[Rfam]
RNA sequence: CUUAGAUAUGGUGACAUGGUGCCAAAGACCAUUAUGGGGAAGAUCUUUGGUUCCAUCUGCUCUUUGAGUGGCGUGUUGGUCAUCGCUCUGCCGGUCCCCGUCAUCGUGUCCAAC
Numbered sequence: 001c002u003u004a005g006a007u008a009u010g011g012u013g014a015c016a017u018g019g020u021g022c023c024a025a026a027g028a029c030c031a032u033u034a035u036g037g038g039g040a041a042g043a044u045c046u047u048u049g050g051u052u053c054c055a056u057c058u059g060c061u062c063u064u065u066g067a068g069u070g071g072c073g074u075g076u077u078g079g080u081c082a083u084c085g086c087u088c089u090g091c092c093g094g095u096c097c098c099c100g101u102c103a104u105c106g107u108g109u110c111c112a113a114c
Stems, first nucleotide, its partner, number of pairs: 002113001005110001007108005013102003018097002021095002037077002040074001049063002
Rfam assigns this 114-nucleotide sequence from Maylandia zebra to the family "Potassium channel RNA editing signal". Pairs were carried over by alignment from the consensus structure, which is taken from published work. A reference for the family is Bhalla et al. (2004), "Control of human potassium channel inactivation by editing of a small mRNA hairpin", Nat Struct Mol Biol. A search with the family's covariance model found it, with a score of 90 bits.